RNA sequence: UAACAGGUUAAAGUCCUGAAGGAGGAAUUGUCCGUACGCCUUCUUAGCACCGGGAAGCAGCGUCUGGGGUAACCAGGGGUUGUAAGUUUCUUAUGGGCAAAGAUGCAGGCCGUAACGAAA
Numbered sequence: 001u002a003a004c005a006g007g008u009u010a011a012a013g014u015c016c017u018g019a020a021g022g023a024g025g026a027a028u029u030g031u032c033c034g035u036a037c038g039c040c041u042u043c044u045u046a047g048c049a050c051c052g053g054g055a056a057g058c059a060g061c062g063u064c065u066g067g068g069g070u071a072a073c074c075a076g077g078g079g080u081u082g083u084a085a086g087u088u089u090c091u092u093a094u095g096g097g098c099a100a101a102g103a104u105g106c107a108g109g110c111c112g113u114a115a116c117g118a119a120a
Stems, first nucleotide, its partner, number of pairs: 020044005052092005057083005066074001068073001097113002